Shown here is an 89-nucleotide RNA sequence from Cnephaeus nilssonii, a member of the family "mir-9195 microRNA precursor family". The family has 3 seed sequences and 438 matches in Rfam 15.1. The base pairs follow the family's consensus structure, which was predicted with RNAalifold.
RNA sequence: AGAGGCCCAUCCGCGGCCAGGUGCGGAACGCUUGCCUCGUUGCUGUGGUGACGAAGCAAGCAUUCUGCCAGGCCGCUCACGCAGCCUGC
Numbered sequence: 001a002g003a004g005g006c007c008c009a010u011c012c013g014c015g016g017c018c019a020g021g022u023g024c025g026g027a028a029c030g031c032u033u034g035c036c037u038c039g040u041u042g043c044u045g046u047g048g049u050g051a052c053g054a055a056g057c058a059a060g061c062a063u064u065c066u067g068c069c070a071g072g073c074c075g076c077u078c079a080c081g082c083a084g085c086c087u088g089c
Stems, first nucleotide, its partner, number of pairs: 004086003013076006021069001023068006030061006039052005